[Rfam]
Nucleotides: 158
Stems, first nucleotide, its partner, number of pairs: 001158002004156005011067004017061006025053005032045002035042002071114001073112005080105003087098004116149002119146004127139004
Number, partner (000 for none) and nucleotide at each position: 001158u002157g003000u004156a005155u006154g007153u008152c009000a010000g011067g012066g013065u014064c015000a016000a017061a018060a019059g020058g021057u022056c023000a024000a025053a026052a027051u028050c029049c030000g031000a032045u033044u034000g035042u036041g037000c038000u039000u040000g041036c042035a043000a044033a045032a046000a047000g048000a049029g050028g051027a052026u053025u054000g055000a056022g057021a058020c059019c060018u061017u062000g063000g064014g065013a066012c067011c068000c069000g070000c071114a072000a073112a074111a075110c076109a077108c078000g079000a080105g081104c082103a083000a084000g085000u086000a087098g088097c089096g090095u091000u092000a093000u094000u095090a096089c097088g098087c099000g100000g101000a102000a103082u104081g105080c106000g107000a108077g109076u110075g111074u112073u113000u114071u115000a116149g117148g118000a119146u120145u121144g122143c123000g124000g125000g126000a127139a128138u129137u130136g131000c132000g133000u134000a135000g136130c137129a138128a139127u140000g141000a142000a143122g144121c145120a146119a147000g148117c149116c150000g151000u152008g153007a154006c155005a156004u157002c158001a
Shown here is a 158-nucleotide sequence from Lachnospiraceae bacterium KH1T2, a member of the family "Clostridiales-1 RNA". It is annotated as a small RNA. The family's consensus secondary structure is taken from published work. Lineage of the source: Bacteria > Bacillota > Clostridia > Lachnospirales > Lachnospiraceae.